[Rfam]
RNA sequence: AUGAAGAUAUUUUAAAAAGACAAGCUGAAGUCAAGCUGACUCUGCUUUUAACCUCCUUACGUGAAAAGGUAGAUAGAACAAGUCUUGUAUGAAAAAUAGGUUCAAGACCUACUUAUCUACCAACAGCA
Numbered sequence: 001a002u003g004a005a006g007a008u009a010u011u012u013u014a015a016a017a018a019g020a021c022a023a024g025c026u027g028a029a030g031u032c033a034a035g036c037u038g039a040c041u042c043u044g045c046u047u048u049u050a051a052c053c054u055c056c057u058u059a060c061g062u063g064a065a066a067a068g069g070u071a072g073a074u075a076g077a078a079c080a081a082g083u084c085u086u087g088u089a090u091g092a093a094a095a096a097u098a099g100g101u102u103c104a105a106g107a108c109c110u111a112c113u114u115a116u117c118u119a120c121c122a123a124c125a126g127c128a
Stems, first nucleotide, its partner, number of pairs: 003056001005054002008051001013050003021044002026033002068121008080110001082108006
This 128-nucleotide RNA sequence from Carlito syrichta belongs to the Rfam family "Small Cajal body specific RNA 15". The family is grouped with related families in Rfam's "SCARNA4 clan". The literature on the family includes a 2002 paper in EMBO J by Darzacq et al., "Cajal body-specific small nuclear RNAs: a novel class of 2'-O-methylation and pseudouridylation guide RNAs". Rfam classes the family as a small Cajal body RNA. Taxonomically the source falls in Carlito (Eukaryota, Gnathostomata, Mammalia, Euarchontoglires).